[Rfam]
RNA sequence: ACGAAUAUUUAGCAAACCUGCCGAAAGGCAGCGACGCAAAGCUAGAGGGGCUUCAUCAUAUAAUACUAUGAAAAGCCAGCCAGUUGCGAUU
Numbered sequence: 001a002c003g004a005a006u007a008u009u010u011a012g013c014a015a016a017c018c019u020g021c022c023g024a025a026a027g028g029c030a031g032c033g034a035c036g037c038a039a040a041g042c043u044a045g046a047g048g049g050g051c052u053u054c055a056u057c058a059u060a061u062a063a064u065a066c067u068a069u070g071a072a073a074a075g076c077c078a079g080c081c082a083g084u085u086g087c088g089a090u091u
Base pairs, nucleotide, nucleotide: 012037013036018031019030020029021028022027040085041084042083043082047081048080049077050076051075056071057070058069059068

Source information
c-di-GMP-I riboswitch aptamer: a 91-nucleotide RNA from Clostridium sp. chh4-2. Rfam describes the family as follows. GEMM was predicted in a large-scale screen for bacterial structured RNA regulatory elements. The match comes from Rfam's covariance-model search (59 bits). Clan: c-di-GMP_I riboswitch clan. The organism belongs to Clostridium, within Bacteria.